[Rfam]
RNA sequence: UAAGUUGACCAAGCAGUCGCUAUUUAAUUUGUUAAUUAAAUAGAGGAAAGUCCGGGCUCCAAGAGCAAGAGUGCCAGAUAACAUCUGGGCAGAAUAUUUUUUCUGACGAAUAGUGCAACAGAAAAUAUACCGCUAAAUAAUAUUUUAAUAAUAUUAAAUAGUAAGGGUGAAAAGGCGUGUUAAAAGCACACCGCAUAUUUAGUAAUAAAUAUGGCAAUGUAAACUCCACUCGGAGCAAGGUUAAAUAGAAUUUAAAAUACUGCUCGUAUAAAUUCAGGUAAACCGCUUGAACCAAUAAGUGAUUAUUGGUCUAGAUAAAUGACUGCAUAAAACAGAACCCGGCUUAUAGGUCAACUUAAAAA
Number, nucleotide and partner (000 for none) at each position: 001u358002a357003a356004g355005u354006u353007g352008a351009c350010c349011a347012a000013g326014c325015a324016g323017u322018c321019g000020c043021u042022a041023u040024u039025u038026a037027a036028u035029u000030u000031g000032u000033u000034a000035a028036u027037u026038a025039a024040a023041u022042a021043g020044a000045g000046g000047a000048a345049a344050g343051u000052c342053c341054g340055g339056g338057c235058u234059c233060c232061a000062a000063g000064a000065g264066c000067a000068a000069g231070a230071g229072u228073g227074c088075c087076a086077g085078a084079u000080a000081a000082c000083a000084u078085c077086u076087g075088g074089g107090c105091a104092g103093a102094a000095u000096a000097u000098u000099u000100u000101u000102u093103c092104u091105g090106a000107c089108g226109a225110a000111u000112a000113g224114u223115g220116c219117a218118a000119c000120a000121g000122a000123a000124a000125a000126u000127a000128u000129a000130c166131c165132g162133c161134u160135a159136a000137a000138u156139a155140a154141u153142a152143u151144u150145u000146u000147a000148a000149u000150a144151a143152u142153a141154u140155u139156a138157a000158a000159u135160a134161g133162u132163a000164a000165g131166g130167g000168u000169g000170a000171a000172a000173a000174g192175g191176c000177g189178u188179g187180u000181u000182a000183a000184a000185a000186g000187c179188a178189c177190a000191c175192c174193g215194c213195a212196u211197a210198u209199u208200u207201a206202g000203u000204a000205a000206u201207a200208a199209a198210u197211a196212u195213g194214g000215c193216a000217a000218u117219g116220u115221a000222a000223a114224c113225u109226c108227c073228a072229c071230u070231c069232g060233g059234a058235g057236c000237a000238a000239g284240g283241u282242u281243a000244a000245a000246u000247a000248g275249a274250a273251u272252u271253u270254a000255a000256a000257a269258u268259a267260c266261u000262g000263c000264u065265c000266g260267u259268a258269u257270a253271a252272a251273u250274u249275c248276a000277g000278g000279u000280a000281a242282a241283c240284c239285g000286c000287u000288u000289g000290a000291a310292c309293c308294a307295a306296u305297a304298a303299g000300u000301g000302a000303u298304u297305a296306u295307u294308g293309g292310u291311c000312u000313a000314g000315a000316u000317a000318a000319a000320u000321g018322a017323c016324u015325g014326c013327a000328u000329a000330a000331a000332a000333c000334a000335g000336a000337a000338c056339c055340c054341g053342g052343c050344u049345u048346a000347u011348a000349g010350g009351u008352c007353a006354a005355c004356u003357u002358a001359a000360a000361a000362a000

This 362-nucleotide sequence from Buchnera aphidicola belongs to the Rfam family "Bacterial RNase P class A". The match comes from Rfam's covariance-model search (292 bits). It is annotated as a ribozyme. NCBI's taxonomy places the organism under Bacteria, Pseudomonadota, Enterobacterales, Buchnera, Buchnera aphidicola.